RNA: Bacillus-plasmid RNA
RNA sequence: UGGGUCAAUGGUAAAUCUCUGACCGAAGGAACUGAGGGAAUUUAAGGAAUUGACGCAUUUUUUAGC
Numbered sequence: 001u002g003g004g005u006c007a008a009u010g011g012u013a014a015a016u017c018u019c020u021g022a023c024c025g026a027a028g029g030a031a032c033u034g035a036g037g038g039a040a041u042u043u044a045a046g047g048a049a050u051u052g053a054c055g056c057a058u059u060u061u062u063u064a065g066c
Stems, first nucleotide, its partner, number of pairs: 001057002004054006